[Rfam]
This 111-nucleotide RNA sequence from Lathyrus oleraceus belongs to the Rfam family "Small nucleolar RNA Z152/R70/R12/".
Rfam classes the family as a C/D-box small nucleolar RNA.
RNA sequence: GGUGCUAUGAUGACGUAAAGGCACAUAGGAAGUGUUUAUGGGUAGUGGACAUAAUCGUAUGGUUUCGCUGUGAGUCUAACUUCAAAAUGAUUUCUCCUUCCACUGUGCAUU
Numbered sequence: 001g002g003u004g005c006u007a008u009g010a011u012g013a014c015g016u017a018a019a020g021g022c023a024c025a026u027a028g029g030a031a032g033u034g035u036u037u038a039u040g041g042g043u044a045g046u047g048g049a050c051a052u053a054a055u056c057g058u059a060u061g062g063u064u065u066c067g068c069u070g071u072g073a074g075u076c077u078a079a080c081u082u083c084a085a086a087a088u089g090a091u092u093u094c095u096c097c098u099u100c101c102a103c104u105g106u107g108c109a110u111u
Stems, first nucleotide, its partner, number of pairs: 001111005